[Rfam]
RNA sequence: UGCUGUGAUGAGUUAAUUUGCGCCUGAUAGCGAGGUUGGUGACAAAUGCCUAUUGUCAAACAACCACCUUGCCUAUGUGACGACAACAUCUCUGAGCA
Number, nucleotide and partner (000 for none) at each position: 001u098002g097003c096004u000005g000006u000007g000008a000009u000010g000011a000012g000013u000014u000015a000016a000017u000018u000019u000020g000021c082022g081023c000024c079025u000026g000027a000028u000029a000030g072031c071032g070033a069034g068035g000036u000037u000038g000039g064040u063041g057042a056043c055044a054045a053046a000047u000048g000049c000050c000051u000052a000053u045054u044055g043056u042057c041058a000059a000060a000061c000062a000063a040064c039065c000066a000067c000068c034069u033070u032071g031072c030073c000074u000075a000076u000077g000078u000079g024080a000081c022082g021083a000084c000085a000086a000087c000088a000089u000090c000091u000092c000093u000094g000095a000096g003097c002098a001